RNA sequence: GUUGUGCUAUGAUUAUAACAAUUCCUCGUACUGAGUGCCGAAGGCAUGACAGACAACUUUACACCCAUAGAAUAUCAGCACA
Numbered sequence: 001g002u003u004g005u006g007c008u009a010u011g012a013u014u015a016u017a018a019c020a021a022u023u024c025c026u027c028g029u030a031c032u033g034a035g036u037g038c039c040g041a042a043g044g045c046a047u048g049a050c051a052g053a054c055a056a057c058u059u060u061a062c063a064c065c066c067a068u069a070g071a072a073u074a075u076c077a078g079c080a081c082a
Base pairs, nucleotide, nucleotide: 003082004081005080006079